[Rfam]
RNA sequence: AGGCAGGUAGGGUCGGGGUGCUAGCCGUGCCCCACACUGGAAAUCGGCUUCAUGCCAGGACCAGUAACCGCUGGGUAAAUCCGCUGGGAGGAGGUACCCGCUUGCCUUGCGGAAAUGAAAUCACGCCGUGUCGGAUGGUUAUGAGCAGCGAUCUGCGCGAAGGCGCGGCGUCGACUGCGCAUCGUCGAAAUGGGUGAGGUCCGGGAGGGAGCAACCCUAAGGCGGCGUAGCCAUGCUAGCACGUCUACGUGGUGGAUCUCGCAGGGCUUGAAAUGGGGCCUUUUGCCAACGGUGGUACCGGUGGGCUGCCU
Numbered sequence: 001a002g003g004c005a006g007g008u009a010g011g012g013u014c015g016g017g018g019u020g021c022u023a024g025c026c027g028u029g030c031c032c033c034a035c036a037c038u039g040g041a042a043a044u045c046g047g048c049u050u051c052a053u054g055c056c057a058g059g060a061c062c063a064g065u066a067a068c069c070g071c072u073g074g075g076u077a078a079a080u081c082c083g084c085u086g087g088g089a090g091g092a093g094g095u096a097c098c099c100g101c102u103u104g105c106c107u108u109g110c111g112g113a114a115a116u117g118a119a120a121u122c123a124c125g126c127c128g129u130g131u132c133g134g135a136u137g138g139u140u141a142u143g144a145g146c147a148g149c150g151a152u153c154u155g156c157g158c159g160a161a162g163g164c165g166c167g168g169c170g171u172c173g174a175c176u177g178c179g180c181a182u183c184g185u186c187g188a189a190a191u192g193g194g195u196g197a198g199g200u201c202c203g204g205g206a207g208g209g210a211g212c213a214a215c216c217c218u219a220a221g222g223c224g225g226c227g228u229a230g231c232c233a234u235g236c237u238a239g240c241a242c243g244u245c246u247a248c249g250u251g252g253u254g255g256a257u258c259u260c261g262c263a264g265g266g267c268u269u270g271a272a273a274u275g276g277g278g279c280c281u282u283u284u285g286c287c288a289a290c291g292g293u294g295g296u297a298c299c300g301g302u303g304g305g306c307u308g309c310c311u
Stems, first nucleotide, its partner, number of pairs: 001311005011062004015033007037058004042053001068304007076297002081292003085288003089284007097277004101270001104267009114257001116255001120253006127243005133237002135234008143180001146177003149173004153168006182225005192217004200209003

A member of the RNA family "Archaeal signal recognition particle RNA" from Nitrososphaera viennensis, 311 nucleotides long. The source organism's lineage runs through Archaea, Nitrososphaerota, Nitrososphaeria, Nitrososphaerales and Nitrososphaera viennensis. Rfam classes the family as a non-coding RNA gene. Its Rfam clan is "SRP clan".